[Rfam]
RNA sequence: CUAUAUCCACCCUGUAGAUCCGAGUUUGUGUAAACAUGGCGGCAGCCACAAAUUCGCAUCUUGGGGAGCAUGUAGG
Numbered sequence: 001c002u003a004u005a006u007c008c009a010c011c012c013u014g015u016a017g018a019u020c021c022g023a024g025u026u027u028g029u030g031u032a033a034a035c036a037u038g039g040c041g042g043c044a045g046c047c048a049c050a051a052a053u054u055c056g057c058a059u060c061u062u063g064g065g066g067a068g069c070a071u072g073u074a075g076g
Base pairs, nucleotide, nucleotide: 002074003073004072005071006070010066011065012064016061017060018059019058021056022055023054024053025052026051027050028049029048030047
Overview
The record is a 76-nucleotide RNA from Channa argus, which matches "mir-10 microRNA precursor family" in Rfam. Rfam 15.1 lists 3,853 matches to the family in 853 species.